The family of this 144-nucleotide RNA sequence from Paenibacillus rhizosphaerae is "c-di-AMP riboswitch aptamer (ydaO/yuaA leader)". The organism belongs to Paenibacillus, within Bacteria. The match comes from Rfam's covariance-model search (101 bits).

RNA sequence: UGAAUAAGAACGCCGAAUUUCAAGUGAAAACGGGGGAACCAAUUUUUUGGGGUGAAUUUCGUUGGGACGGUUUAGUCCGCGAAUAGGGCAACCUGUGCAUGCCCGAAUCCGUCAGCUAACCUCGUAGGCGUCGUGCAUGCAGGA
Dot-bracket structure: ..........((((...(((......)))((((((....((......))(((.....((((..................))))..((((...........))))...))).........)))))).))))..............

The pairing is the family consensus, mapped onto this sequence. Rfam links the family to the GO terms cyclic-di-AMP binding and regulation of gene expression.